[Rfam]
RNA sequence: CUGUGACCUCCUGGGUUCCCUUUGUCAUCCUAUGCCUGGAGUCCUGAUGAGGCUGGGACAGCAAAGGGAGGUCCAGAUGUCAUCCCA
Dot-bracket structure: ................((((((.((..(((((.((((............)))))))))..)).))))))..................

Rfam assigns this 87-nucleotide RNA sequence from Sinocyclocheilus rhinocerous to the family "mir-204 microRNA precursor family". Gene Ontology terms of the family: miRNA-mediated post-transcriptional gene silencing and RISC complex. A search with the family's covariance model found it, with a score of 83 bits. Pairs were carried over by alignment from the consensus structure, which was predicted with RNAalifold. Taxonomically the source falls in Sinocyclocheilus (Eukaryota, Deuterostomia, Teleostomi, Euteleostomi). Rfam 15.1 lists 1,730 matches to the family in 644 species.